[Rfam]
RNA sequence: CCAAAUCAAACGCUGAAUUCCCUUAAGUGGGAACCGGGGGACCCAAGCGAAACUGCCACAUUGGUUUCAUGGGGUGAAUCCUUCUGCUUACUAAAAAGCGGCUAGGUAGGGCAAACUCUCAAGCCCGAAUCCGACAGCUAACCUCGUAAGCGUAUUGAGAGAGAACCA
Numbered sequence: 001c002c003a004a005a006u007c008a009a010a011c012g013c014u015g016a017a018u019u020c021c022c023u024u025a026a027g028u029g030g031g032a033a034c035c036g037g038g039g040g041a042c043c044c045a046a047g048c049g050a051a052a053c054u055g056c057c058a059c060a061u062u063g064g065u066u067u068c069a070u071g072g073g074g075u076g077a078a079u080c081c082u083u084c085u086g087c088u089u090a091c092u093a094a095a096a097a098g099c100g101g102c103u104a105g106g107u108a109g110g111g112c113a114a115a116c117u118c119u120c121a122a123g124c125c126c127g128a129a130u131c132c133g134a135c136a137g138c139u140a141a142c143c144u145c146g147u148a149a150g151c152g153u154a155u156u157g158a159g160a161g162a163g164a165a166c167c168a
Stems, first nucleotide, its partner, number of pairs: 011152004018033005035146005044071002072132003080106003109126004
Record summary:
c-di-AMP riboswitch aptamer (ydaO/yuaA leader): a 168-nucleotide RNA sequence from Paenibacillus antarcticus. The organism belongs to Paenibacillus, within Bacteria. This family represents a conserved RNA structure found upstream of the ydaO and yuaA genes in Bacillus subtilis and related genes in other bacteria. A search with the family's covariance model found it, with a score of 97 bits.